Rfam assigns this 167-nucleotide RNA sequence from Niallia taxi to the family "glmS glucosamine-6-phosphate activated ribozyme aptamer". It is annotated as a riboswitch. It scores 120 bits against the family's covariance model. The base pairs follow the family's consensus structure, which is taken from published work. This entry contains a glucosamine-6-phosphate activated ribozyme that is found in the mRNA for GlmS. GlmS is an enzyme that uses fructose-6-phosphate and glutamine to generate glucosamine-6-phosphate.

RNA sequence: UAGUUAUACAAAGCGCCUGAACUAGCAGUGGACGAAGCGUGUGCUAGUUGACGAGGAGGAGGUUUAUCGAUAUUUCGGCGGAUACCUCCCGGUUAUGUAGCAGAUCGAGAGCUUUAUUUUAAAACAUUAAGGCAACUUAAUGCACAAAGAAUAGGGCAUGCUAAUAU
Numbered sequence: 001u002a003g004u005u006a007u008a009c010a011a012a013g014c015g016c017c018u019g020a021a022c023u024a025g026c027a028g029u030g031g032a033c034g035a036a037g038c039g040u041g042u043g044c045u046a047g048u049u050g051a052c053g054a055g056g057a058g059g060a061g062g063u064u065u066a067u068c069g070a071u072a073u074u075u076c077g078g079c080g081g082a083u084a085c086c087u088c089c090c091g092g093u094u095a096u097g098u099a100g101c102a103g104a105u106c107g108a109g110a111g112c113u114u115u116a117u118u119u120u121a122a123a124a125c126a127u128u129a130a131g132g133c134a135a136c137u138u139a140a141u142g143c144a145c146a147a148a149g150a151a152u153a154g155g156g157c158a159u160g161c162u163a164a165u166a167u
Stems, first nucleotide, its partner, number of pairs: 020049008058089005067078004090107005111157007125142007